[Rfam]
RNA sequence: GGAGGGGUAGCGAAGUGGCUAAACGCGGCAGACUGUAAAUCUGUUCCUAACGGUUCGACAGUUCGAAUCUGUCCCCCUCCA
Numbered sequence: 001g002g003a004g005g006g007g008u009a010g011c012g013a014a015g016u017g018g019c020u021a022a023a024c025g026c027g028g029c030a031g032a033c034u035g036u037a038a039a040u041c042u043g044u045u046c047c048u049a050a051c052g053g054u055u056c057g058a059c060a061g062u063u064c065g066a067a068u069c070u071g072u073c074c075c076c077c078u079c080c081a
Base pairs, nucleotide, nucleotide: 001080002079003078004077005076006075007074010026011025012024028044029043030042031041032040057073058072059071060070061069
RNA: tRNA
Organism: Acholeplasma palmae